[Rfam]
This 204-nucleotide RNA sequence from Erysipelothrix sp. HDW6C belongs to the Rfam family "T-box leader". Pairs were carried over by alignment from the consensus structure, which is taken from published work. A search with the family's covariance model found it, with a score of 138 bits. The organism belongs to Erysipelothrix, within Bacteria. The family's RNA type in Rfam is cis-regulatory leader. Uncharged tRNA acts as the effector for transcription antitermination of genes in the T-box leader family.

RNA sequence: AAAUAAUCGAUGAUCAAGAGAGUAGUCAUAGGAACAUUUACAGCGAAUCAGGGACGGUGGAAGCCUGGUAAUUGAACUAUGAUGAACCGCACUUGGGAGAUAUUGAAUUGAAAUGAGUAGAUUCAAUCGCCAACUAGCGUUAUAGAAGAGUGGUCUUACAUAUGUAAGGCAAAUAGAGUGGUACCGCGUUAACACGUCUCUAGA
Numbered sequence: 001a002a003a004u005a006a007u008c009g010a011u012g013a014u015c016a017a018g019a020g021a022g023u024a025g026u027c028a029u030a031g032g033a034a035c036a037u038u039u040a041c042a043g044c045g046a047a048u049c050a051g052g053g054a055c056g057g058u059g060g061a062a063g064c065c066u067g068g069u070a071a072u073u074g075a076a077c078u079a080u081g082a083u084g085a086a087c088c089g090c091a092c093u094u095g096g097g098a099g100a101u102a103u104u105g106a107a108u109u110g111a112a113a114u115g116a117g118u119a120g121a122u123u124c125a126a127u128c129g130c131c132a133a134c135u136a137g138c139g140u141u142a143u144a145g146a147a148g149a150g151u152g153g154u155c156u157u158a159c160a161u162a163u164g165u166a167a168g169g170c171a172a173a174u175a176g177a178g179u180g181g182u183a184c185c186g187c188g189u190u191a192a193c194a195c196g197u198c199u200c201u202a203g204a
Stems, first nucleotide, its partner, number of pairs: 007100002015095004025083006036072003047069006103126007128139003153170007175201004186197004
Dot-bracket structure: ......((......((((......((((((.....(((........((((((...........))))))))).....))))))........))))...))..(((((((..........))))))).(((......))).............(((((((....)))))))....((((.......((((....))))))))...